[Rfam]
RNA sequence: ACGAUGUUCCGCUGCAAUGAAGAGAUCAUUGGCAUGAACAUCUG
Numbered sequence: 001a002c003g004a005u006g007u008u009c010c011g012c013u014g015c016a017a018u019g020a021a022g023a024g025a026u027c028a029u030u031g032g033c034a035u036g037a038a039c040a041u042c043u044g
Base pairs, nucleotide, nucleotide: 003042004041005040006039007038008037009036013034014033015031016030017029018028
A member of the RNA family "Ribosomal protein L19 leader" from Geobacillus kaustophilus, 44 nucleotides long. The family's consensus secondary structure was predicted with CMfinder. About the family: This family is a putative r-protein leader autoregulatory structure found in B. subtilis and other low-GC Gram-positive bacteria. It is located in the 5' untranslated regions of mRNAs encoding ribosomal protein L19 (rplS).